[Rfam]
RNA sequence: CGAUUUCAUCAAGAAUCAAUGCAAAUUGAUACCAACCGAGAGAUAAAACUCCGCGGUGGUCAAUGGAUGAGGACAUACCGUCAAAAUAAAAAUGACCU
Numbered sequence: 001c002g003a004u005u006u007c008a009u010c011a012a013g014a015a016u017c018a019a020u021g022c023a024a025a026u027u028g029a030u031a032c033c034a035a036c037c038g039a040g041a042g043a044u045a046a047a048a049c050u051c052c053g054c055g056g057u058g059g060u061c062a063a064u065g066g067a068u069g070a071g072g073a074c075a076u077a078c079c080g081u082c083a084a085a086a087u088a089a090a091a092a093u094g095a096c097c098u
Stems, first nucleotide, its partner, number of pairs: 006070005015030006031060003036056003040051002072082003
RNA: SAM-I/IV (S-adenosyl methionine) riboswitch aptamer
Organism: Membranihabitans marinus